[Rfam]
RNA sequence: UGGUAGAUGCACCCUGAUUCAAACCCCGGAGACAACUUCGGGGUUUUUUUCU
Numbered sequence: 001u002g003g004u005a006g007a008u009g010c011a012c013c014c015u016g017a018u019u020c021a022a023a024c025c026c027c028g029g030a031g032a033c034a035a036c037u038u039c040g041g042g043g044u045u046u047u048u049u050u051c052u
Stems, first nucleotide, its partner, number of pairs: 002013003023044009
Dot-bracket structure: .(((......))).........(((((((((....)))))))))........
RNA: Nitrogen stress-induced RNA 1